About this RNA
The record is an 81-nucleotide RNA sequence from Atlantisia rogersi, which matches "mir-92 microRNA precursor family" in Rfam. Rfam 15.1 lists 1,347 matches to the family in 653 species. Pairs were carried over by alignment from the consensus structure, which was predicted with PFOLD. Gene Ontology terms of the family: miRNA-mediated post-transcriptional gene silencing and RISC complex. A reference for the family is Mourelatos et al. (2002), "miRNPs: a novel class of ribonucleoproteins containing numerous microRNAs", Genes Dev.

RNA sequence: GUUUCUCCAUGGGUGGGGAUUUGUUGCAUUACUUGUAGCUGUAUAUAGAGUAUUGCACUUGUCCCGGCCUGUGGAGGAAAG
Numbered sequence: 001g002u003u004u005c006u007c008c009a010u011g012g013g014u015g016g017g018g019a020u021u022u023g024u025u026g027c028a029u030u031a032c033u034u035g036u037a038g039c040u041g042u043a044u045a046u047a048g049a050g051u052a053u054u055g056c057a058c059u060u061g062u063c064c065c066g067g068c069c070u071g072u073g074g075a076g077g078a079a080a081g
Stems, first nucleotide, its partner, number of pairs: 004077003009072006016065005023058002026056003030052005